[Rfam]
Description:
The family of this 131-nucleotide RNA sequence from Mycolicibacterium chubuense is "ALIL pseudoknot". It is annotated as a cis-regulatory element. The family's consensus secondary structure is taken from published work.
RNA sequence: GGCGAGUUUCUUCGGGGCGGAGCUCGACCGCCAACACAGAAGUAAUCGCCUUCAUCGACGCCCAGCGGGGCGAGUUCGGGGUCGAGCCCAUCAUCACCGUCCUGCGCAGUGCAGGCGUGAGGAUGGCCCUG
Numbered sequence: 001g002g003c004g005a006g007u008u009u010c011u012u013c014g015g016g017g018c019g020g021a022g023c024u025c026g027a028c029c030g031c032c033a034a035c036a037c038a039g040a041a042g043u044a045a046u047c048g049c050c051u052u053c054a055u056c057g058a059c060g061c062c063c064a065g066c067g068g069g070g071c072g073a074g075u076u077c078g079g080g081g082u083c084g085a086g087c088c089c090a091u092c093a094u095c096a097c098c099g100u101c102c103u104g105c106g107c108a109g110u111g112c113a114g115g116c117g118u119g120a121g122g123a124u125g126g127c128c129c130u131g
Base pairs, nucleotide, nucleotide: 016032017031018030019029020028077131078130079129080128081127088126089125091123092122094120095119096118097117